[Rfam]
RNA sequence: CUGGGGUGAGGUAGUAAGUUGUAUUGUUGUUGGGGUUGGGAUUUUGCACCCUGUUUUGGAGAUAACUAUACAACUUACUGCCUUCCUUUC
Number, nucleotide and partner (000 for none) at each position: 001c000002u000003g088004g087005g086006g085007u000008g084009a083010g082011g081012u080013a079014g078015u077016a076017a075018g074019u073020u072021g071022u070023a069024u068025u000026g066027u065028u000029g000030u000031u000032g052033g051034g050035g049036u000037u000038g000039g000040g000041a000042u000043u000044u000045u000046g000047c000048a000049c035050c034051c033052u032053g000054u061055u060056u000057u000058g000059g000060a055061g054062a000063u000064a000065a027066c026067u000068a024069u023070a022071c021072a020073a019074c018075u017076u016077a015078c014079u013080g012081c011082c010083u009084u008085c006086c005087u004088u003089u000090c000